[Rfam]
RNA sequence: CAAAAAACCAGCGUCGCGAAGGCGCUGGCUCGGACGACAACUACCGUCAUGUGCCGUACAGGUCGCGGCGGACGGCGACGCGAAGCGUCUGGAAGACCGGAGACUGGUUGUCAGCCAGGGGGUCCGGCGAACAAUGUGAGCGGAUUCUAGGGAGGGUUUUAUAGAUCGUCAACACUAUAAAGUCCCGAAAUCAUAACAAAAAGUAA
Numbered sequence: 001c002a003a004a005a006a007a008c009c010a011g012c013g014u015c016g017c018g019a020a021g022g023c024g025c026u027g028g029c030u031c032g033g034a035c036g037a038c039a040a041c042u043a044c045c046g047u048c049a050u051g052u053g054c055c056g057u058a059c060a061g062g063u064c065g066c067g068g069c070g071g072a073c074g075g076c077g078a079c080g081c082g083a084a085g086c087g088u089c090u091g092g093a094a095g096a097c098c099g100g101a102g103a104c105u106g107g108u109u110g111u112c113a114g115c116c117a118g119g120g121g122g123u124c125c126g127g128c129g130a131a132c133a134a135u136g137u138g139a140g141c142g143g144a145u146u147c148u149a150g151g152g153a154g155g156g157u158u159u160u161a162u163a164g165a166u167c168g169u170c171a172a173c174a175c176u177a178u179a180a181a182g183u184c185c186c187g188a189a190a191u192c193a194u195a196a197c198a199a200a201a202a203g204u205a206a
Stems, first nucleotide, its partner, number of pairs: 008028007044110001046108003052070005077089005135174003140169004146165004
RNA: Burkholderia sRNA Bp1_Cand738_SIPHT